[Rfam]
RNA sequence: GCGGACCUACGGGGCCGCGCACACUUUCAGACCUUGAAAUAUUCAAGGCUGAGCAUGAAACGGAAGACAGAAA
Numbered sequence: 001g002c003g004g005a006c007c008u009a010c011g012g013g014g015c016c017g018c019g020c021a022c023a024c025u026u027u028c029a030g031a032c033c034u035u036g037a038a039a040u041a042u043u044c045a046a047g048g049c050u051g052a053g054c055a056u057g058a059a060a061c062g063g064a065a066g067a068c069a070g071a072a073a
Stems, first nucleotide, its partner, number of pairs: 001018004006014003027052004033047006
This 73-nucleotide RNA from Rhodobacteraceae bacterium HTCC2150 belongs to the Rfam family "L2-Alphaproteobacteria ribosomal protein leader". The sequence is in the family's curated seed alignment.